[Rfam]
RNA sequence: AUUGCAAAUGACGAAAAAAAGACAGGGACAUCAGAGCUCCUUGGAGUAAAAGAUGACUUGGUCGAUGGGAAUCUCUCUGAUGCUAU
Numbered sequence: 001a002u003u004g005c006a007a008a009u010g011a012c013g014a015a016a017a018a019a020a021g022a023c024a025g026g027g028a029c030a031u032c033a034g035a036g037c038u039c040c041u042u043g044g045a046g047u048a049a050a051a052g053a054u055g056a057c058u059u060g061g062u063c064g065a066u067g068g069g070a071a072u073c074u075c076u077c078u079g080a081u082g083c084u085a086u
Stems, first nucleotide, its partner, number of pairs: 002085001004083003